[Rfam]
Overview:
The family of this 31-nucleotide RNA sequence from Tymovirus nemesiae is "Pseudoknot of upstream pseudoknot domain (UPD) of the 3'UTR". Pairs were carried over by alignment from the consensus structure, which is taken from published work. Rfam links the family to the GO term regulation of viral transcription. Taxonomically the source falls in Tymovirus nemesiae (Viruses, Orthornavirae, Alsuviricetes, Tymovirus). A reference for the family is Leathers et al. (1993), "A phylogenetically conserved sequence within viral 3' untranslated RNA pseudoknots regulates translation", Mol Cell Biol. The family's RNA type in Rfam is cis-regulatory element.
RNA sequence: AGUGUUUCGGCUUCCACUUAAAUCGAAAGCC
Number, nucleotide and partner (000 for none) at each position: 001a018002g017003u016004g015005u000006u000007u000008c000009g031010g030011c029012u028013u027014c025015c004016a003017c002018u001019u000020a000021a000022a000023u000024c000025g014026a000027a013028a012029g011030c010031c009
Rfam's curators put it in the seed alignment.